[Rfam]
RNA sequence: AAACCUUCACAUAACUGGCGGAAGUGGGAAAACCACAGGGAGUGUGAAGCGUAUCGAUUAGCCGACCGCCUGGGCAGUUUUA
Numbered sequence: 001a002a003a004c005c006u007u008c009a010c011a012u013a014a015c016u017g018g019c020g021g022a023a024g025u026g027g028g029a030a031a032a033c034c035a036c037a038g039g040g041a042g043u044g045u046g047a048a049g050c051g052u053a054u055c056g057a058u059u060a061g062c063c064g065a066c067c068g069c070c071u072g073g074g075c076a077g078u079u080u081u082a
Stems, first nucleotide, its partner, number of pairs: 005049008015039002017070005024036004059077001061075003
Source information
ZMP/ZTP riboswitch aptamer (pfl RNA motif): an 82-nucleotide RNA from Syntrophobotulus glycolicus.